[Rfam]
RNA sequence: UAAAAGGGUUUCUGCUGUGAAUAGCACAUAGAUGAGGUCUUCGGGCUUUAUCUGUGCGGAAUCGAUAUCAAGAGAUUUCGGAAGCACAAUUUUUGUUACUUGGAGCUGCUGGUGAUCGUUUGUUCUGGCGCUCCU
Numbered sequence: 001u002a003a004a005a006g007g008g009u010u011u012c013u014g015c016u017g018u019g020a021a022u023a024g025c026a027c028a029u030a031g032a033u034g035a036g037g038u039c040u041u042c043g044g045g046c047u048u049u050a051u052c053u054g055u056g057c058g059g060a061a062u063c064g065a066u067a068u069c070a071a072g073a074g075a076u077u078u079c080g081g082a083a084g085c086a087c088a089a090u091u092u093u094u095g096u097u098a099c100u101u102g103g104a105g106c107u108g109c110u111g112g113u114g115a116u117c118g119u120u121u122g123u124u125c126u127g128g129c130g131c132u133c134c135u
Stems, first nucleotide, its partner, number of pairs: 008085005013026005027056012057080007103133004108129005114124003
RNA: U11 spliceosomal RNA